RNA sequence: ACAACAUUCGGACCGUCGGUCUAACGAGCAAUACGUUCCGCUCGGUGGAAGAACUUCCUUCCGUCGU
Numbered sequence: 001a002c003a004a005c006a007u008u009c010g011g012a013c014c015g016u017c018g019g020u021c022u023a024a025c026g027a028g029c030a031a032u033a034c035g036u037u038c039c040g041c042u043c044g045g046u047g048g049a050a051g052a053a054c055u056u057c058c059u060u061c062c063g064u065c066g067u
Stems, first nucleotide, its partner, number of pairs: 004064002010058003016052002020049004025044005

A member of the RNA family "mir-2774 microRNA precursor family" from Bombyx mori, 67 nucleotides long.
The match comes from Rfam's covariance-model search (70 bits).
For this family Rfam cites "MicroRNAs of Bombyx mori identified by Solexa sequencing" (Liu et al., BMC Genomics, 2010).